[Rfam]
Small nucleolar RNA SNORD83: a 78-nucleotide sequence from Oryctolagus cuniculus. It scores 86 bits against the family's covariance model.
RNA sequence: GCCACAUGAUGUUUUCGUUUUGAGGCGUGAGCGCUUGGCGCGCUGAUGACCUUAAUCUAUCACCCUGGACUGAUGGCU
Numbered sequence: 001g002c003c004a005c006a007u008g009a010u011g012u013u014u015u016c017g018u019u020u021u022g023a024g025g026c027g028u029g030a031g032c033g034c035u036u037g038g039c040g041c042g043c044u045g046a047u048g049a050c051c052u053u054a055a056u057c058u059a060u061c062a063c064c065c066u067g068g069a070c071u072g073a074u075g076g077c078u
Base pairs, nucleotide, nucleotide: 001077002076003075004074031041032040033039034038